[Rfam]
RNA: Small nucleolar RNA F1/F2/snoR5a
RNA sequence: UUAUGCCAUUUGGUAUCUGACUCAUUGUCUACUUUUGUGACUAUGUGUCUUGAAAUAUGGCAUAUAAUAAGGGGGAACGGAUCUUGCGACAUUGAUGGCUCCUGUAUGAGCCUCCAAUUACUAUAUAGCCGUUUACAUGU
Numbered sequence: 001u002u003a004u005g006c007c008a009u010u011u012g013g014u015a016u017c018u019g020a021c022u023c024a025u026u027g028u029c030u031a032c033u034u035u036u037g038u039g040a041c042u043a044u045g046u047g048u049c050u051u052g053a054a055a056u057a058u059g060g061c062a063u064a065u066a067a068u069a070a071g072g073g074g075g076a077a078c079g080g081a082u083c084u085u086g087c088g089a090c091a092u093u094g095a096u097g098g099c100u101c102c103u104g105u106a107u108g109a110g111c112c113u114c115c116a117a118u119u120a121c122u123a124u125a126u127a128g129c130c131g132u133u134u135a136c137a138u139g140u
Base pairs, nucleotide, nucleotide: 004062005061006060007059008058009057019049020048021047023045024044025043027041028040029039031038076133077132078131079130080129091118092117093116094115097112098111099110100109